The family of this 163-nucleotide RNA sequence from Streptomyces sp. 136MFCol5.1 is "c-di-AMP riboswitch aptamer (ydaO/yuaA leader)".
Taxonomically the source falls in Streptomyces (Bacteria, Actinomycetes, Kitasatosporales, Streptomycetaceae).
The base pairs follow the family's consensus structure.
From the family's description: This family represents a conserved RNA structure found upstream of the ydaO and yuaA genes in Bacillus subtilis and related genes in other bacteria.
RNA sequence: GACCGGAAUUCGCAUCCACUCAUCGUGUGGCAGGAGCGGGGGAACCAGGUAAGCCGCCGACCGGAGAAAUCCGGCCGGCUCGGGGUGAAGUCGCACCUCAUGCGACCGGGCAUCUCCAGCCCGAACCCGACAGCUCACCUCGUAGGCGACGGAGAGGAAAUUC
Numbered sequence: 001g002a003c004c005g006g007a008a009u010u011c012g013c014a015u016c017c018a019c020u021c022a023u024c025g026u027g028u029g030g031c032a033g034g035a036g037c038g039g040g041g042g043a044a045c046c047a048g049g050u051a052a053g054c055c056g057c058c059g060a061c062c063g064g065a066g067a068a069a070u071c072c073g074g075c076c077g078g079c080u081c082g083g084g085g086u087g088a089a090g091u092c093g094c095a096c097c098u099c100a101u102g103c104g105a106c107c108g109g110g111c112a113u114c115u116c117c118a119g120c121c122c123g124a125a126c127c128c129g130a131c132a133g134c135u136c137a138c139c140u141c142g143u144a145g146g147c148g149a150c151g152g153a154g155a156g157g158a159a160a161u162u163c
Base pairs, nucleotide, nucleotide: 003034004033036143037142038141039140040139041138046082083128084127085126091105092104093103094102108122109121110120111119